[Rfam]
RNA: Lysine riboswitch aptamer
RNA sequence: UUGUGAGGUAGAGGCGCGAUAUUUAACAGUUUUUAGUGGAGCUUGAGGUGCAUUGAUACUAGGAAGAAGGAAAUAUUGCCGAAGCAAAUAAUACUCUCACUAUUAUUUGCUGGGUCUACAGUUAAGAACUGUAGGACUGUCUUAAUAAACUACCCUGUUUAUUAAGGUGUGCUAUCUCCAUU
Numbered sequence: 001u002u003g004u005g006a007g008g009u010a011g012a013g014g015c016g017c018g019a020u021a022u023u024u025a026a027c028a029g030u031u032u033u034u035a036g037u038g039g040a041g042c043u044u045g046a047g048g049u050g051c052a053u054u055g056a057u058a059c060u061a062g063g064a065a066g067a068a069g070g071a072a073a074u075a076u077u078g079c080c081g082a083a084g085c086a087a088a089u090a091a092u093a094c095u096c097u098c099a100c101u102a103u104u105a106u107u108u109g110c111u112g113g114g115u116c117u118a119c120a121g122u123u124a125a126g127a128a129c130u131g132u133a134g135g136a137c138u139g140u141c142u143u144a145a146u147a148a149a150c151u152a153c154c155c156u157g158u159u160u161a162u163u164a165a166g167g168u169g170u171g172c173u174a175u176c177u178c179c180a181u182u
Base pairs, nucleotide, nucleotide: 006177007176008175009174010173011172016079017078018077019076020075021074022073023072024071031064032063033062034061035060036059037058038057083111084110085109086108087107088106089105090104091103092102093101112138113137115135116134117133118132119131120130121129122128140167141166142165143164144163145162146161147160148159149158